[Rfam]
The record is a 48-nucleotide RNA from Elingamita johnsonii, which matches "Plastid-ccsA-ndhD-1 3UTR RNA" in Rfam.
Rfam describes the family as follows. Plastid-ccsA-ndhD-1 is a non-coding RNA (ncRNA) recognised in plastids. It was found in the three prime untranslated region (3UTR) of ccsA and ndhD genes, its 3UTR location suggests a role in transcript maturation.
Its Rfam clan is "Plastid-ccsA_ndhD 3UTR RNA clan".
The base pairs follow the family's consensus structure, which was predicted with LocARNA.
Taxonomically the source falls in Elingamita (Eukaryota, Magnoliopsida, asterids, Ericales).
Rfam classes the family as a cis-regulatory element.

RNA sequence: GUGAGAACCAUAUGAAUCGAGUAGUGUAGUGAUUCAUAUGGUUCUCAC
Numbered sequence: 001g002u003g004a005g006a007a008c009c010a011u012a013u014g015a016a017u018c019g020a021g022u023a024g025u026g027u028a029g030u031g032a033u034u035c036a037u038a039u040g041g042u043u044c045u046c047a048c
Stems, first nucleotide, its partner, number of pairs: 001048019
Dot-bracket structure: (((((((((((((((((((..........)))))))))))))))))))
It is one of the family's seed sequences.